Rfam assigns this 305-nucleotide RNA from Carnegiea gigantea to the family "Plant signal recognition particle RNA".
The base pairs follow the family's consensus structure, which is taken from published work.
RNA sequence: GCUGAGCUUGGCAGCAUCAGCUUGUAGUUUAAGUGAGGGCAGCAAGGCGAUGGGACUUGGCUUAAUUUCACUUGGUAGGGUUGCAGGUUGCGGUUUGCUAGCUUGUACAUUCCAAGCUGGGAGUUGGGCUAAGUAGGUCAGGCGAAGGCUUGGUCCAAAAAGCCCCUGCAGAGGUGGGCAUUGCAUCAGGCUGGCUUCACAGAGCAGCAAUAUACCUCCCGCCCUCAGCAGUGGAAGGAUAACAAGAUGAGCAUCCUCUGUCCAUCAUUACCCUGUGGGGUGAGCUCAAUUAGACCAUCAUCUUU
Numbered sequence: 001g002c003u004g005a006g007c008u009u010g011g012c013a014g015c016a017u018c019a020g021c022u023u024g025u026a027g028u029u030u031a032a033g034u035g036a037g038g039g040c041a042g043c044a045a046g047g048c049g050a051u052g053g054g055a056c057u058u059g060g061c062u063u064a065a066u067u068u069c070a071c072u073u074g075g076u077a078g079g080g081u082u083g084c085a086g087g088u089u090g091c092g093g094u095u096u097g098c099u100a101g102c103u104u105g106u107a108c109a110u111u112c113c114a115a116g117c118u119g120g121g122a123g124u125u126g127g128g129c130u131a132a133g134u135a136g137g138u139c140a141g142g143c144g145a146a147g148g149c150u151u152g153g154u155c156c157a158a159a160a161a162g163c164c165c166c167u168g169c170a171g172a173g174g175u176g177g178g179c180a181u182u183g184c185a186u187c188a189g190g191c192u193g194g195c196u197u198c199a200c201a202g203a204g205c206a207g208c209a210a211u212a213u214a215c216c217u218c219c220c221g222c223c224c225u226c227a228g229c230a231g232u233g234g235a236a237g238g239a240u241a242a243c244a245a246g247a248u249g250a251g252c253a254u255c256c257u258c259u260g261u262c263c264a265u266c267a268u269u270a271c272c273c274u275g276u277g278g279g280g281u282g283a284g285c286u287c288a289a290u291u292a293g294a295c296c297a298u299c300a301u302c303u304u305u
Stems, first nucleotide, its partner, number of pairs: 001040003004023005010017001028037003044304004049299005058288003061284004066279001068278004074272004078263004083258001086255001089253001092252001099249002102246005108237001110236005116229006123222002126165005134157001136155008166171001173219002176216002182212001186207001191202003
The family's RNA type in Rfam is non-coding RNA gene. Taxonomically the source falls in Carnegiea (Eukaryota, Embryophyta, Tracheophyta, Cactaceae).